[Rfam]
A member of the RNA family "Bacterial RNase P class A" from Chlorobium ferrooxidans, 401 nucleotides long.
It is annotated as a ribozyme.
RNA sequence: AAACCGCAAGUGUGCAGUCGCUGUGGAGCAUCACGCUUCACAGAGGAAAGUCCGAACUUCACAGGGCAGGGUGCCGGUCGAGAGCCGAAAGGCUCAAGCCCGGGGAUAACGGCGCAAGCCGGUUAUCACAGAGAGUGCAACAGAAAACAGACCGCUCCGGACGGCCGGAGUAAGGGUGAAACGGCGGUGUAAGAGACCACCAGGCAGUGCAGUAAUGCACUGCGCUUGGCAAACCUCCCCGAAGCAAGGCUAAAUAGGAAAACUUUUCCCUCCGGGGAAAGAGAGCGGCCCGUUCAAUUCCGAAAGGAGAGUUUUCGGGUAAGCCGCAUCAGAUAAAUGGCUGCAGUUUUAUCCGGACUCCGGAUAAUCCACAGAAUUCGGCUUACAGCUUCGGUUUCAGC
Numbered sequence: 001a002a003a004c005c006g007c008a009a010g011u012g013u014g015c016a017g018u019c020g021c022u023g024u025g026g027a028g029c030a031u032c033a034c035g036c037u038u039c040a041c042a043g044a045g046g047a048a049a050g051u052c053c054g055a056a057c058u059u060c061a062c063a064g065g066g067c068a069g070g071g072u073g074c075c076g077g078u079c080g081a082g083a084g085c086c087g088a089a090a091g092g093c094u095c096a097a098g099c100c101c102g103g104g105g106a107u108a109a110c111g112g113c114g115c116a117a118g119c120c121g122g123u124u125a126u127c128a129c130a131g132a133g134a135g136u137g138c139a140a141c142a143g144a145a146a147a148c149a150g151a152c153c154g155c156u157c158c159g160g161a162c163g164g165c166c167g168g169a170g171u172a173a174g175g176g177u178g179a180a181a182c183g184g185c186g187g188u189g190u191a192a193g194a195g196a197c198c199a200c201c202a203g204g205c206a207g208u209g210c211a212g213u214a215a216u217g218c219a220c221u222g223c224g225c226u227u228g229g230c231a232a233a234c235c236u237c238c239c240c241g242a243a244g245c246a247a248g249g250c251u252a253a254a255u256a257g258g259a260a261a262a263c264u265u266u267u268c269c270c271u272c273c274g275g276g277g278a279a280a281g282a283g284a285g286c287g288g289c290c291c292g293u294u295c296a297a298u299u300c301c302g303a304a305a306g307g308a309g310a311g312u313u314u315u316c317g318g319g320u321a322a323g324c325c326g327c328a329u330c331a332g333a334u335a336a337a338u339g340g341c342u343g344c345a346g347u348u349u350u351a352u353c354c355g356g357a358c359u360c361c362g363g364a365u366a367a368u369c370c371a372c373a374g375a376a377u378u379c380g381g382c383u384u385a386c387a388g389c390u391u392c393g394g395u396u397u398c399a400g401c
Stems, first nucleotide, its partner, number of pairs: 001397006008391004012386001013345007021043009048384003052381005057244004069240003073237001074103004104129001105127006130236002135234002137230002152175002154171007183201002186198003203225001204223008248325004258316006298309004
NCBI's taxonomy places the organism under Bacteria, Pseudomonadati, Chlorobiia, Chlorobiales, Chlorobium ferrooxidans.